[Rfam]
RNA sequence: UGCCUAAGGUCUAGUAUUACCCUUAGGUAACCUCUGUAUUUUGUAGCA
Numbered sequence: 001u002g003c004c005u006a007a008g009g010u011c012u013a014g015u016a017u018u019a020c021c022c023u024u025a026g027g028u029a030a031c032c033u034c035u036g037u038a039u040u041u042u043g044u045a046g047c048a
Stems, first nucleotide, its partner, number of pairs: 001029009